[Rfam]
RNA sequence: GCCUCGCGGGUCAAGUGGUCCUAAACAUUUCACAAUUAGCCUAAAGAACUGUUGAACUGUUAAGAACCACUGCACCCGGG
Numbered sequence: 001g002c003c004u005c006g007c008g009g010g011u012c013a014a015g016u017g018g019u020c021c022u023a024a025a026c027a028u029u030u031c032a033c034a035a036u037u038a039g040c041c042u043a044a045a046g047a048a049c050u051g052u053u054g055a056a057c058u059g060u061u062a063a064g065a066a067c068c069a070c071u072g073c074a075c076c077c078g079g080g
Stems, first nucleotide, its partner, number of pairs: 014071006021064002024061004029056004
RNA: mir-203 microRNA precursor family
Organism: Crocodylus porosus